[Rfam]
RNA sequence: GUGAAGUUGAUCACAAGCAAACAUUACCCCUUUGUUUGACCGUGAAAAAUUUCUCCCAUCCCCUUUGUUCGCAUUUAUAGAGAAAAGACCCUGCAGUCCGUUACUGCAGGGUCUUU
Numbered sequence: 001g002u003g004a005a006g007u008u009g010a011u012c013a014c015a016a017g018c019a020a021a022c023a024u025u026a027c028c029c030c031u032u033u034g035u036u037u038g039a040c041c042g043u044g045a046a047a048a049a050u051u052u053c054u055c056c057c058a059u060c061c062c063c064u065u066u067g068u069u070c071g072c073a074u075u076u077a078u079a080g081a082g083a084a085a086a087g088a089c090c091c092u093g094c095a096g097u098c099c100g101u102u103a104c105u106g107c108a109g110g111g112u113c114u115u116u
Stems, first nucleotide, its partner, number of pairs: 003053006011045004018038006069083001072080001087113011